[Rfam]
RNA sequence: CGGCUGUAGCUAAAUCAAACCAUCGACGAGUUAUCUGGCCGGUUGUCCUCUCUCUCUGGACUAAUCUGCUUACCGAACUUGUCACAUUC
Number, nucleotide and partner (000 for none) at each position: 001c000002g000003g000004c000005u000006g000007u000008a000009g000010c000011u000012a000013a000014a000015u000016c000017a000018a000019a000020c000021c000022a000023u000024c000025g083026a082027c081028g080029a079030g078031u077032u076033a000034u000035c000036u000037g070038g069039c068040c000041g066042g065043u064044u063045g061046u060047c059048c058049u000050c000051u000052c000053u000054c000055u000056c000057u000058g048059g047060a046061c045062u000063a044064a043065u042066c041067u000068g039069c038070u037071u000072a000073c000074c000075g000076a032077a031078c030079u029080u028081g027082u026083c025084a000085c000086a000087u000088u000089c000
RNA: Small nucleolar RNA snoR109